Shown here is a 111-nucleotide RNA from Liparis tanakae, a member of the family "Small nucleolar RNA SNORD89". About the family: snoRNA HBII-289 belongs to the family of C/D snoRNAs. It is the human orthologue of the mouse MBII-289 and has no identified RNA target. The match comes from Rfam's covariance-model search (45 bits).
RNA sequence: UCUGGGAAAUGAUGUGAACAAAAGGCCGAAUUGUAGCGCCCCCUUCAGGCAGAGUGUUCUCAGAGCGGGGCGCCGUGACCAAGAGCGCCGGAGCGUUCGUCUGAUCCCAGA
Numbered sequence: 001u002c003u004g005g006g007a008a009a010u011g012a013u014g015u016g017a018a019c020a021a022a023a024g025g026c027c028g029a030a031u032u033g034u035a036g037c038g039c040c041c042c043c044u045u046c047a048g049g050c051a052g053a054g055u056g057u058u059c060u061c062a063g064a065g066c067g068g069g070g071c072g073c074c075g076u077g078a079c080c081a082a083g084a085g086c087g088c089c090g091g092a093g094c095g096u097u098c099g100u101c102u103g104a105u106c107c108c109a110g111a
Base pairs, nucleotide, nucleotide: 001111002110003109004108005107006106007105014101025034026033035097036096037095038094043093046091048089049088052073055067056066057065074087075086